A member of the RNA family "Small nucleolar RNA U3" from Hemibagrus wyckioides, 214 nucleotides long. On this family, see Zwieb, Nucleic Acids Res 1997: "The uRNA database". Taxonomically the source falls in Hemibagrus (Eukaryota, Deuterostomia, Osteoglossocephalai, Siluroidei). The base pairs follow the family's consensus structure, which is taken from published work. It scores 141 bits against the family's covariance model.
RNA sequence: AAGACUGUACUUUCCGGGAUCAUUUCUAUAGUGACUGACUAGGAAAUGUGAUUUGAAAGUGAUAUGUCUCCCUAAUCACGAUGAAGAGCUGUGAUGUAUUCUUCUGAGUGUGAAUCAGAUUCAAGCUACUGAUUUCUAUCACAGGCUUGAGUCAUUGAUGAACAUUCUCUGUUUCUUAUGAAAAAUGAGAGGAAGAGUACAUGAUCAGAGUGAU
Numbered sequence: 001a002a003g004a005c006u007g008u009a010c011u012u013u014c015c016g017g018g019a020u021c022a023u024u025u026c027u028a029u030a031g032u033g034a035c036u037g038a039c040u041a042g043g044a045a046a047u048g049u050g051a052u053u054u055g056a057a058a059g060u061g062a063u064a065u066g067u068c069u070c071c072c073u074a075a076u077c078a079c080g081a082u083g084a085a086g087a088g089c090u091g092u093g094a095u096g097u098a099u100u101c102u103u104c105u106g107a108g109u110g111u112g113a114a115u116c117a118g119a120u121u122c123a124a125g126c127u128a129c130u131g132a133u134u135u136c137u138a139u140c141a142c143a144g145g146c147u148u149g150a151g152u153c154a155u156u157g158a159u160g161a162a163c164a165u166u167c168u169c170u171g172u173u174u175c176u177u178a179u180g181a182a183a184a185a186u187g188a189g190a191g192g193a194a195g196a197g198u199a200c201a202u203g204a205u206c207a208g209a210g211u212g213a214u
Base pairs, nucleotide, nucleotide: 002040003039005037008033009032010031011030016027017026018025019024048065049064050063053062054061075214076213077212078211079210094202095201096200097199098198099197100196101195102194103193104192105191108165109164110163118153119152120151121150124147125146126145127144130141131140132139168188169187170185172183173182174181175180
Small nucleolar RNAs (snoRNAs) are involved in the processing and modification of rRNA in the nucleolus. There are two main classes of snoRNAs: the box C/D class, and the box H/ACA class. U3 snoRNA is a member of the box C/D class. Indeed, the box C/D element is a subset of the six short sequence elements found in all U3 snoRNAs, namely boxes A, A', B, C, C', and D. The U3 snoRNA secondary structure is characterised by a small 5' domain (with boxes A and A'), and a larger 3' domain (with boxes B, C, C', and D), the two domains being linked by a single-stranded hinge. Boxes B and C form the B/C motif, which appears to be exclusive to U3 snoRNAs, and boxes C' and D form the C'/D motif. The latter is functionally similar to the C/D motifs found in other snoRNAs. The 5' domain and the hinge region act as a pre-rRNA-binding domain. The 3' domain has conserved protein-binding sites. Both the box B/C and box C'/D motifs are sufficient for nuclear retention of U3 snoRNA. The box C'/D motif is also necessary for nucleolar localisation, stability and hyper-methylation of U3 snoRNA. Both box B/C and C'/D motifs are involved in specific protein interactions and are necessary for the rRNA processing functions of U3 snoRNA.